The family of this 92-nucleotide RNA sequence is "ivy-DE RNA". It is annotated as a cis-regulatory element. It is one of the family's seed sequences. Pairs were carried over by alignment from the consensus structure, which is taken from published work.
RNA sequence: UGAUCAAGGGGCCGGGACGUUCUGCCUGUUUCAGGGGCGGAGUGACCUACGGGUACAGGGAGUGCCUGCGCAAGGGCCGGAUCAGGCAGAAG
Numbered sequence: 001u002g003a004u005c006a007a008g009g010g011g012c013c014g015g016g017a018c019g020u021u022c023u024g025c026c027u028g029u030u031u032c033a034g035g036g037g038c039g040g041a042g043u044g045a046c047c048u049a050c051g052g053g054u055a056c057a058g059g060g061a062g063u064g065c066c067u068g069c070g071c072a073a074g075g076g077c078c079g080g081a082u083c084a085g086g087c088a089g090a091a092g
Stems, first nucleotide, its partner, number of pairs: 001084005010078004014048003018044001020042008050068007